[Rfam]
RNA sequence: GUCAAUAACCCACGACUAAAGUCGCAGGCUUGCAAAAGCCUUUGUUGACUAGCUUAAGUUCUUCGAGAACUACGUUAUGUGAGAAUAUAUAGUUACCUGUGGAUGUACAGCCUAGUCUGCAGCUCUAAGGUAAGUGAUUAAACAGUUCUAAUGGGUAGGAACAGUGUUGCUUACAAAUAAACCUCACGAUAACAUUAGCGAAGGCUACAUUAC
Numbered sequence: 001g002u003c004a005a006u007a008a009c010c011c012a013c014g015a016c017u018a019a020a021g022u023c024g025c026a027g028g029c030u031u032g033c034a035a036a037a038g039c040c041u042u043u044g045u046u047g048a049c050u051a052g053c054u055u056a057a058g059u060u061c062u063u064c065g066a067g068a069a070c071u072a073c074g075u076u077a078u079g080u081g082a083g084a085a086u087a088u089a090u091a092g093u094u095a096c097c098u099g100u101g102g103a104u105g106u107a108c109a110g111c112c113u114a115g116u117c118u119g120c121a122g123c124u125c126u127a128a129g130g131u132a133a134g135u136g137a138u139u140a141a142a143c144a145g146u147u148c149u150a151a152u153g154g155g156u157a158g159g160a161a162c163a164g165u166g167u168u169g170c171u172u173a174c175a176a177a178u179a180a181a182c183c184u185c186a187c188g189a190u191a192a193c194a195u196u197a198g199c200g201a202a203g204g205c206u207a208c209a210u211u212a213c
Stems, first nucleotide, its partner, number of pairs: 001049008010028002013024001015022002029038003052199003056195001057071005074193005079187005093128002097122008112203002130174009142165002145162005151156001
The record is a 213-nucleotide sequence from Eubacterium ruminantium, which matches "HNH endonuclease-associated RNA and ORF (HEARO) RNA" in Rfam. By type it is a non-coding RNA gene.